[Rfam]
This 81-nucleotide RNA from Scleropages formosus belongs to the Rfam family "mir-219 microRNA precursor family".
The family has 92 seed sequences and 1,318 matches in Rfam 15.1.
The literature on the family includes a 2003 paper in Science by Lim et al., "Vertebrate microRNA genes".
Gene Ontology terms of the family: RISC complex and miRNA-mediated post-transcriptional gene silencing.
The base pairs follow the family's consensus structure, which was predicted with RNAalifold.
RNA sequence: CUAGCAGUUGAUUGUCCAAACGCAAUUCUUGUUCAGUUACUAAUAAUAAACCAAGAAUUGUGCCUGGACAUCUGUUGCUGG
Number, nucleotide and partner (000 for none) at each position: 001c000002u080003a079004g078005c077006a076007g075008u000009u000010g072011a071012u070013u000014g069015u068016c067017c066018a065019a000020a000021c062022g061023c060024a059025a058026u057027u056028c055029u054030u053031g052032u000033u000034c000035a000036g000037u000038u000039a000040c000041u000042a000043a000044u000045a000046a000047u000048a000049a000050a000051c000052c031053a030054a029055g028056a027057a026058u025059u024060g023061u022062g021063c000064c000065u018066g017067g016068a015069c014070a012071u011072c010073u000074g000075u007076u006077g005078c004079u003080g002081g000